[Rfam]
This 131-nucleotide sequence from Catagonus wagneri belongs to the Rfam family "Small nucleolar RNA SNORA30/SNORA37 family".
RNA sequence: CUAGCACUUUCACAGGUCCUCCCCAAGGCAGUGGGGCCAGGAUUUGGUAGCUGGUGCUUAAAUUGAAAACCCUUGAUUACAUCCUUGCCUUGGGACUAUGUCAGUGGCAACUGUCAAUUGAUGGGACAGAA
Dot-bracket structure: ..((((((....(((.((((.(((.........)))..)))).)))......))))))...........(((((((.(..((..(((((((((.......)))).)))))..)).).)))).)))......
Numbered sequence: 001c002u003a004g005c006a007c008u009u010u011c012a013c014a015g016g017u018c019c020u021c022c023c024c025a026a027g028g029c030a031g032u033g034g035g036g037c038c039a040g041g042a043u044u045u046g047g048u049a050g051c052u053g054g055u056g057c058u059u060a061a062a063u064u065g066a067a068a069a070c071c072c073u074u075g076a077u078u079a080c081a082u083c084c085u086u087g088c089c090u091u092g093g094g095a096c097u098a099u100g101u102c103a104g105u106g107g108c109a110a111c112u113g114u115c116a117a118u119u120g121a122u123g124g125g126a127c128a129g130a131a
Stems, first nucleotide, its partner, number of pairs: 003058006013046003017042004022036003070125003073121004078116001081114002085110005090104004
About the family: The members of this family belong to the H/ACA class of snoRNAs that guide the sites of modification of uridines to pseudouridines.